[Rfam]
This 72-nucleotide RNA from Moschus moschiferus belongs to the Rfam family "Small nucleolar RNA SNORD113/SNORD114 family".
The base pairs follow the family's consensus structure, which is taken from published work.
The family's RNA type in Rfam is C/D-box small nucleolar RNA.

RNA sequence: UGGAUCGAUGGUUACUCCCUGAGGCGUGCAAGUUGUGUGCAAUGAAUACGGGUCUGGAGCUCUGAGGUUUGA
Numbered sequence: 001u002g003g004a005u006c007g008a009u010g011g012u013u014a015c016u017c018c019c020u021g022a023g024g025c026g027u028g029c030a031a032g033u034u035g036u037g038u039g040c041a042a043u044g045a046a047u048a049c050g051g052g053u054c055u056g057g058a059g060c061u062c063u064g065a066g067g068u069u070u071g072a
Stems, first nucleotide, its partner, number of pairs: 002070005
Rfam describes the family as follows. The imprinted human domain at 14q32 contains two clusters of tandemly repeated small nucleolar RNAs named 14q(I) and 14q(II) snoRNAs. These two clusters are named SNORD113 and SNORD114 respectively in the HGNC approved gene symbol nomenclature. The snoRNAs found in both clusters are clearly related and are represented here by a single family. Rfam links the family to the GO terms nucleolus and RNA processing. The family has 59 seed sequences and 5,721 matches in Rfam 15.1. The organism belongs to Moschus, within Eukaryota. A reference for the family is Cavaille et al. (2002), "Identification of tandemly-repeated C/D snoRNA genes at the imprinted human 14q32 domain reminiscent of those at the Prader-Willi/Angelman syndrome region", Hum Mol Genet.